A member of the RNA family "L31-Actinobacteria ribosomal protein leader" from Glycomyces terrestris, 39 nucleotides long. Pairs were carried over by alignment from the consensus structure, which is taken from published work.
[Rfam]
RNA sequence: GCGGUACCGGUUCACGGCCCUCCGGCCGACCCGGCGACC
Number, nucleotide and partner (000 for none) at each position: 001g000002c000003g039004g038005u037006a000007c034008c033009g032010g031011u000012u000013c000014a000015c028016g027017g026018c025019c024020c000021u000022c000023c000024g019025g018026c017027c016028g015029a000030c000031c010032c009033g008034g007035c000036g000037a005038c004039c003
The source organism's lineage runs through Bacteria, Bacillati, Actinomycetes, Glycomycetales and Glycomyces.